[Rfam]
RNA: 6S / SsrS RNA
RNA sequence: UUAACCCUGCGGUGUUCGACAGCGACAUGUGUUGUCUUGAGCCGAUAAGCAAAUGCUUACCGAAACCAAAAUUUCGGGAUUGAAAAACAGGCCCGCUCUGACGGGAAGUUUGCCAGUCCCAUGCGGUUUCACUCUUGGACCUCCUGGUUCAAGAACCCCGUUCGCAUCGGCACUGUGGGGGCUAU
Numbered sequence: 001u002u003a004a005c006c007c008u009g010c011g012g013u014g015u016u017c018g019a020c021a022g023c024g025a026c027a028u029g030u031g032u033u034g035u036c037u038u039g040a041g042c043c044g045a046u047a048a049g050c051a052a053a054u055g056c057u058u059a060c061c062g063a064a065a066c067c068a069a070a071a072u073u074u075c076g077g078g079a080u081u082g083a084a085a086a087a088c089a090g091g092c093c094c095g096c097u098c099u100g101a102c103g104g105g106a107a108g109u110u111u112g113c114c115a116g117u118c119c120c121a122u123g124c125g126g127u128u129u130c131a132c133u134c135u136u137g138g139a140c141c142u143c144c145u146g147g148u149u150c151a152a153g154a155a156c157c158c159c160g161u162u163c164g165c166a167u168c169g170g171c172a173c174u175g176u177g178g179g180g181g182c183u184a185u
Stems, first nucleotide, its partner, number of pairs: 005180011017169003035154002038151006062130002065127003070122001072121001076120006087109002092105004
Dot-bracket structure: ....(((((((((((.(((...............((.((((((..................((.(((..(.(...((((((.....((...((((......))))..)).....))))))))..))).))...............)))))).))............)))))))))))))).....